[Rfam]
RNA: ALIL pseudoknot
RNA sequence: AGCGUUUUUCGCACAGGCGGAGCUCGACCGCCGACUCAAGUAAUCGUCGUCUACAUCGACGGCCACAAGUCCCGCUUCGGGGUUGAGCCGAUCUGUCGUGUGCUGUCCGCGCAUGGGAUGAAGAUCGCCCCG
Numbered sequence: 001a002g003c004g005u006u007u008u009u010c011g012c013a014c015a016g017g018c019g020g021a022g023c024u025c026g027a028c029c030g031c032c033g034a035c036u037c038a039a040g041u042a043a044u045c046g047u048c049g050u051c052u053a054c055a056u057c058g059a060c061g062g063c064c065a066c067a068a069g070u071c072c073c074g075c076u077u078c079g080g081g082g083u084u085g086a087g088c089c090g091a092u093c094u095g096u097c098g099u100g101u102g103c104u105g106u107c108c109g110c111g112c113a114u115g116g117g118a119u120g121a122a123g124a125u126c127g128c129c130c131c132g
Base pairs, nucleotide, nucleotide: 016032017031018030019029020028078132079131080130081129082128089127090126092124093123094122